The family of this 560-nucleotide part of an RNA from Cercocebus atys is "Eukaryotic small subunit ribosomal RNA". Gene Ontology terms of the family: ribosome and structural constituent of ribosome.
[Rfam]
RNA sequence: UUGUCUCAAAGAUUAAACCAUGCAUGUCUAAGUACCAACCGCGGGUACAGUGAAACUGCGAAUGGCUCAUUAAAUCAGUUAUGGUUCCUUUGGUUGCUUGCUCCUCUCCUACUUGGAUAACUGGGGUAAUUCUAGAGCUAAUACAUGCCGACGGGCGCUGACCCCCUUCGCGGGGGUGGAUGCCUGCAUUUAUCAGAUCAAAACCAACCCGGUCAGCCCCUCUCCGGCCCCGGCCGGGGGGCGGGUGCCGGCGCCUUUGGUGACUCUAGAUAACCUCCGGCGGAUCGCAAGUCCCCCGUGGCGGCAACGACCCAUUCAAACGUCUGCCCUAUCAACUUUCAAUGGUAGUGGCCGUGCCUACCAUGGUGACCACGGGUGACGGAAUCAGGGUUCGAUUUUGGAGAGGGAGCCUGAGAAACGGCCACCACAUCCAAGGAAGGCAGCAGGCGUGCAAAUUACCCACCCCCGACCCGGGGAGAUAGUGACAAAAAAUAACAAUACAGGACUCUUUCGAGAUCCUGUAAUUGGAAUGAGUGCACUUUAAAUCCUUUAACGAUCCA
Numbered sequence: 001u002u003g004u005c006u007c008a009a010a011g012a013u014u015a016a017a018c019c020a021u022g023c024a025u026g027u028c029u030a031a032g033u034a035c036c037a038a039c040c041g042c043g044g045g046u047a048c049a050g051u052g053a054a055a056c057u058g059c060g061a062a063u064g065g066c067u068c069a070u071u072a073a074a075u076c077a078g079u080u081a082u083g084g085u086u087c088c089u090u091u092g093g094u095u096g097c098u099u100g101c102u103c104c105u106c107u108c109c110u111a112c113u114u115g116g117a118u119a120a121c122u123g124g125g126g127u128a129a130u131u132c133u134a135g136a137g138c139u140a141a142u143a144c145a146u147g148c149c150g151a152c153g154g155g156c157g158c159u160g161a162c163c164c165c166c167u168u169c170g171c172g173g174g175g176g177u178g179g180a181u182g183c184c185u186g187c188a189u190u191u192a193u194c195a196g197a198u199c200a201a202a203a204c205c206a207a208c209c210c211g212g213u214c215a216g217c218c219c220c221u222c223u224c225c226g227g228c229c230c231c232g233g234c235c236g237g238g239g240g241g242c243g244g245g246u247g248c249c250g251g252c253g254c255c256u257u258u259g260g261u262g263a264c265u266c267u268a269g270a271u272a273a274c275c276u277c278c279g280g281c282g283g284a285u286c287g288c289a290a291g292u293c294c295c296c297c298g299u300g301g302c303g304g305c306a307a308c309g310a311c312c313c314a315u316u317c318a319a320a321c322g323u324c325u326g327c328c329c330u331a332u333c334a335a336c337u338u339u340c341a342a343u344g345g346u347a348g349u350g351g352c353c354g355u356g357c358c359u360a361c362c363a364u365g366g367u368g369a370c371c372a373c374g375g376g377u378g379a380c381g382g383a384a385u386c387a388g389g390g391u392u393c394g395a396u397u398u399u400g401g402a403g404a405g406g407g408a409g410c411c412u413g414a415g416a417a418a419c420g421g422c423c424a425c426c427a428c429a430u431c432c433a434a435g436g437a438a439g440g441c442a443g444c445a446g447g448c449g450u451g452c453a454a455a456u457u458a459c460c461c462a463c464c465c466c467c468g469a470c471c472c473g474g475g476g477a478g479a480u481a482g483u484g485a486c487a488a489a490a491a492a493u494a495a496c497a498a499u500a501c502a503g504g505a506c507u508c509u510u511u512c513g514a515g516a517u518c519c520u521g522u523a524a525u526u527g528g529a530a531u532g533a534g535u536g537c538a539c540u541u542u543a544a545a546u547c548c549u550u551u552a553a554c555g556a557u558c559c560a
Stems, first nucleotide, its partner, number of pairs: 004490001006488001010483001011450001018447002021445003026059002031057003038051002066403003076326003082320001085319002091314003112147001114145002121137002125133002153185005161177006190273005203261004240249003285307001287305002291302003328376003335367003342364007380400001381397001382393004405426002409422002428439001430437002456481001458480001460478001464476005496527003499523006506515003534554002536551001538550001